[Rfam]
RNA sequence: CACACGCGAAGCUUGGGAUGUUCCGGGAGAAAUCCGGUCCGUUCCGCCCGGUGGUAUCGAUGAAAAUCGGUGCUGUUCGCUUCGCGGGGGUUAAACCGGAAAAGGAGUAACAAG
Dot-bracket structure: (.(.(((((((...((......((.(........)))......)).......(((((((((....))))))))).....)))))))).).........................
Numbered sequence: 001c002a003c004a005c006g007c008g009a010a011g012c013u014u015g016g017g018a019u020g021u022u023c024c025g026g027g028a029g030a031a032a033u034c035c036g037g038u039c040c041g042u043u044c045c046g047c048c049c050g051g052u053g054g055u056a057u058c059g060a061u062g063a064a065a066a067u068c069g070g071u072g073c074u075g076u077u078c079g080c081u082u083c084g085c086g087g088g089g090g091u092u093a094a095a096c097c098g099g100a101a102a103a104g105g106a107g108u109a110a111c112a113a114g
Stems, first nucleotide, its partner, number of pairs: 001089001003087001005086007015045002023037002026035001053074009
The family of this 114-nucleotide sequence from Agrobacterium fabrum is "rpsB sRNA". The source organism's lineage runs through Bacteria, Pseudomonadota, Rhizobiaceae, Agrobacterium tumefaciens complex and Agrobacterium fabrum. It scores 40 bits against the family's covariance model. By type it is a small RNA.